Notes
The record is a 109-nucleotide RNA from Peptoclostridium litorale, which matches "SAM riboswitch aptamer (S box leader)" in Rfam. The family's consensus secondary structure is taken from published work. Gene Ontology term of the family: regulation of gene expression.
RNA sequence: CUCUUAUCAAGAGCGGCGGAGGGACAGGCCCUGUGAAGCCCGGCAACAGCCAGCACCAUGCUGGAAAUGUGCUAAUUCCUGCAGUAGUAUUACUACUGAAAGAUGAGAU
Numbered sequence: 001c002u003c004u005u006a007u008c009a010a011g012a013g014c015g016g017c018g019g020a021g022g023g024a025c026a027g028g029c030c031c032u033g034u035g036a037a038g039c040c041c042g043g044c045a046a047c048a049g050c051c052a053g054c055a056c057c058a059u060g061c062u063g064g065a066a067a068u069g070u071g072c073u074a075a076u077u078c079c080u081g082c083a084g085u086a087g088u089a090u091u092a093c094u095a096c097u098g099a100a101a102g103a104u105g106a107g108a109u
Stems, first nucleotide, its partner, number of pairs: 002108007013041001015040003021031003025081004042073004047069002050064003077101001082098006